The record is a 106-nucleotide RNA sequence from Nocardia camponoti, which matches "mraW RNA" in Rfam. It scores 65 bits against the family's covariance model. The family's consensus secondary structure is taken from published work.

RNA sequence: CACCGCGAGUGCAGCGAGGCCUCUGCCCGGGCGUGGACCCUGACGUACUUCCCCGACGCCAGGUGCCGCGCAUCGGACAGAGACCUCGAAGCAUUCGCCCCGAUGA
Number, nucleotide and partner (000 for none) at each position: 001c000002a000003c000004c000005g000006c000007g000008a000009g000010u093011g092012c091013a000014g000015c088016g087017a000018g085019g084020c000021c082022u081023c080024u079025g078026c000027c076028c075029g074030g073031g071032c070033g069034u068035g067036g066037a000038c000039c063040c062041u061042g060043a000044c058045g057046u056047a000048c000049u000050u000051c000052c000053c000054c000055g000056a046057c045058g044059c000060c042061a041062g040063g039064u000065g000066c036067c035068g034069c033070g032071c031072a000073u030074c029075g028076g027077a000078c025079a024080g023081a022082g021083a000084c019085c018086u000087c016088g015089a000090a000091g012092c011093a010094u000095u000096c000097g000098c000099c000100c000101c000102g000103a000104u000105g000106a000